Shown here is a 142-nucleotide RNA sequence from Lachnoclostridium sp. An131, a member of the family "Ribosomal protein L10 leader".
Lineage of the source: Bacteria > Bacillati > Clostridia > Lachnospirales > Lachnoclostridium.
It is annotated as a cis-regulatory leader.
A search with the family's covariance model found it, with a score of 68 bits.
The family's consensus secondary structure was predicted with CMfinder.
On this family, see Iben and Draper, Biochemistry 2008: "Specific interactions of the L10(L12)4 ribosomal protein complex with mRNA, rRNA, and L11".
RNA sequence: CAUAGCAUGUAACACGACCCGAAGACAGCAGGUGCCGCGAGGCAUAAGUUGAACACGCCUGCCGAGGACGAUACAUUCAUUUAUGGAAUGACUUUCAGAACCUCUCUGUCUAAAGCGGUCAGAGAGGUUUUUUCAUGGAGCG
Numbered sequence: 001c002a003u004a005g006c007a008u009g010u011a012a013c014a015c016g017a018c019c020c021g022a023a024g025a026c027a028g029c030a031g032g033u034g035c036c037g038c039g040a041g042g043c044a045u046a047a048g049u050u051g052a053a054c055a056c057g058c059c060u061g062c063c064g065a066g067g068a069c070g071a072u073a074c075a076u077u078c079a080u081u082u083a084u085g086g087a088a089u090g091a092c093u094u095u096c097a098g099a100a101c102c103u104c105u106c107u108g109u110c111u112a113a114a115g116c117g118g119u120c121a122g123a124g125a126g127g128u129u130u131u132u133u134c135a136u137g138g139a140g141c142g
Stems, first nucleotide, its partner, number of pairs: 028062006034043003101127008110118001